[Rfam]
Rfam assigns this 100-nucleotide RNA sequence to the family "L4-Archaeoglobi ribosomal protein leades".
The sequence is in the family's curated seed alignment.
Pairs were carried over by alignment from the consensus structure, which is taken from published work.
RNA sequence: CUGAUAACCGCGUUCGGGUCAAUUGUGAAUUGCAACACCCAGUCUCCCUUCAUGUGCCAGAAUCAAUAUCUGUCCGAGAAGGAACACGCGUUGCUAUCAG
Numbered sequence: 001c002u003g004a005u006a007a008c009c010g011c012g013u014u015c016g017g018g019u020c021a022a023u024u025g026u027g028a029a030u031u032g033c034a035a036c037a038c039c040c041a042g043u044c045u046c047c048c049u050u051c052a053u054g055u056g057c058c059a060g061a062a063u064c065a066a067u068a069u070c071u072g073u074c075c076g077a078g079a080a081g082g083a084a085c086a087c088g089c090g091u092u093g094c095u096a097u098c099a100g
Base pairs, nucleotide, nucleotide: 001100002099003098004097005096009090010089011088012087013086016040017039018038023035024034025033026032027031047082048081049080050079051078056074058072059071060070061069